[Rfam]
Nucleotides: 059
Base pairs, nucleotide, nucleotide: 001057003054004053005052006051007050008049009048010047011046012045013044014043015042016041017040019039020038021037022036023035
Number, partner (000 for none) and nucleotide at each position: 001057u002000a003054a004053a005052g006051u007050g008049c009048u010047u011046a012045u013044a014043g015042u016041g017040c018000a019039g020038g021037u022036a023035g024000u025000g026000u027000u028000u029000c030000g031000u032000u033000a034000u035023c036022u037021a038020c039019u040017g041016c042015a043014u044013u045012a046011u047010g048009a049008g050007c051006a052005c053004u054003u055000a056000a057001a058000g059000u

The family of this 59-nucleotide RNA sequence from Canis lupus is "mir-17 microRNA precursor family". It is one of the family's seed sequences. Lineage of the source: Eukaryota > Eumetazoa > Sarcopterygii > Laurasiatheria > Canis lupus. From the family's description: This family represents the microRNA (miRNA) precursor mir-17, family, which includes mir-20, mir-91, and mir-103. miRNAs are transcribed as ~70nt precursors (modelled here) and subsequently processed by the Dicer enzyme to give a ~22nt product. The family has 234 seed sequences and 4,687 matches in Rfam 15.1.